[Rfam]
RNA sequence: GCGAUGAGCUGAAUUGUGUAAGUCGAUGAACACGCUAUUUGAGCAAGGCAUGAAUGUGGUCAUGCUGUUCAUCGCCUCAAUACGCAAGAAGGCACCUACCUCAGGUGCCUU
Numbered sequence: 001g002c003g004a005u006g007a008g009c010u011g012a013a014u015u016g017u018g019u020a021a022g023u024c025g026a027u028g029a030a031c032a033c034g035c036u037a038u039u040u041g042a043g044c045a046a047g048g049c050a051u052g053a054a055u056g057u058g059g060u061c062a063u064g065c066u067g068u069u070c071a072u073c074g075c076c077u078c079a080a081u082a083c084g085c086a087a088g089a090a091g092g093c094a095c096c097u098a099c100c101u102c103a104g105g106u107g108c109c110u111u
Base pairs, nucleotide, nucleotide: 014080015079016078018076024074025073026072027071028070029069030068031067034044035043047066048065050063051062052061089111090110091109092108093107094106095105096104097103
Rfam assigns this 111-nucleotide RNA sequence from Bacillus sp. THAF10 to the family "BsrF". Pairs were carried over by alignment from the consensus structure, which was predicted with WAR. Taxonomically the source falls in Bacillus (Bacteria, Bacillati, Bacilli, Bacillaceae).